[Rfam]
RNA: dinG RNA
Nucleotides: 095
Stems, first nucleotide, its partner, number of pairs: 011033004034054005055095004061090001064087001067084005
Number, partner (000 for none) and nucleotide at each position: 001000a002000a003000u004000g005000a006000u007000a008000c009000u010000u011033c012032c013031c014030c015000g016000a017000a018000u019000c020000u021000u022000u023000c024000u025000g026000u027000u028000g029000a030014g031013g032012g033011g034054c035053u036052c037051g038050c039000g040000a041000a042000g043000a044000a045000g046000g047000c048000a049000a050038g051037c052036g053035a054034g055095g056094g057093a058092a059000u060000g061090c062000c063000c064087a065000c066000c067084g068083c069082g070081u071080u072000u073000g074000a075000a076000a077000a078000a079000g080071a081070a082069u083068g084067c085000g086000g087064u088000c089000g090061g091000a092058u093057u094056u095055c